[Rfam]
RNA sequence: AUUUCCGUCGUUGGGGAGUAGCUAAUUUUCGCACCGCGAAAAUGUAUGUAUCAACAUACUCGCUAAAUAGCGUGGUACAUACGGACUGAAAGCCCUUUCAGUC
Numbered sequence: 001a002u003u004u005c006c007g008u009c010g011u012u013g014g015g016g017a018g019u020a021g022c023u024a025a026u027u028u029u030c031g032c033a034c035c036g037c038g039a040a041a042a043u044g045u046a047u048g049u050a051u052c053a054a055c056a057u058a059c060u061c062g063c064u065a066a067a068u069a070g071c072g073u074g075g076u077a078c079a080u081a082c083g084g085a086c087u088g089a090a091a092g093c094c095c096u097u098u099c100a101g102u103c
Stems, first nucleotide, its partner, number of pairs: 026042003044082010061072004084103008

Annotation:
The family of this 103-nucleotide RNA sequence from Shimwellia blattae is "Manganese Mn2+ riboswitch aptamer (yybP-ykoY)". The literature on the family includes a 2001 paper in Curr Biol by Argaman et al., "Novel small RNA-encoding genes in the intergenic regions of Escherichia coli". Rfam links the family to the GO term manganese ion binding. It scores 52 bits against the family's covariance model. The organism belongs to Shimwellia blattae, within Bacteria.